[Rfam]
Rfam assigns this 138-nucleotide sequence from Felis catus to the family "Small nucleolar RNA SNORA46". The family's consensus secondary structure was predicted with RNAfold. Rfam 15.1 lists 582 matches to the family in 490 species. Its family is annotated with nucleolus and RNA processing in the Gene Ontology. The match comes from Rfam's covariance-model search (132 bits).
RNA sequence: AGCACUAUAUUUAAACCUGUGGAUGGAAAUUUUUCCCAUUCCUGGUUACGCUGUAGUGCAAAAUAAUUCCUGGCUCUUUGUGUUACACAGCUGACUUUGUGCCAUUCUGCUGUUGAUCUGUAGAGUUACGGAACAUAA
Numbered sequence: 001a002g003c004a005c006u007a008u009a010u011u012u013a014a015a016c017c018u019g020u021g022g023a024u025g026g027a028a029a030u031u032u033u034u035c036c037c038a039u040u041c042c043u044g045g046u047u048a049c050g051c052u053g054u055a056g057u058g059c060a061a062a063a064u065a066a067u068u069c070c071u072g073g074c075u076c077u078u079u080g081u082g083u084u085a086c087a088c089a090g091c092u093g094a095c096u097u098u099g100u101g102c103c104a105u106u107c108u109g110c111u112g113u114u115g116a117u118c119u120g121u122a123g124a125g126u127u128a129c130g131g132a133a134c135a136u137a138a
Stems, first nucleotide, its partner, number of pairs: 002059008014047004021041006067133004072127006079120002086115002088112004093107002